[Rfam]
RNA: Cyano-1 RNA
Organism: Synechococcus sp. CC9311
RNA sequence: AACUUUGUGAGGAGAGCUUCUUCUUGAAAUGGAAACGAGGCGACACGUCCUAAAAGAAGCCGAGA
Dot-bracket structure: ...............(((((((...(.(.((............))..).)...))))))).....
Numbered sequence: 001a002a003c004u005u006u007g008u009g010a011g012g013a014g015a016g017c018u019u020c021u022u023c024u025u026g027a028a029a030u031g032g033a034a035a036c037g038a039g040g041c042g043a044c045a046c047g048u049c050c051u052a053a054a055a056g057a058a059g060c061c062g063a064g065a
Stems, first nucleotide, its partner, number of pairs: 016060007026050001028048001030045002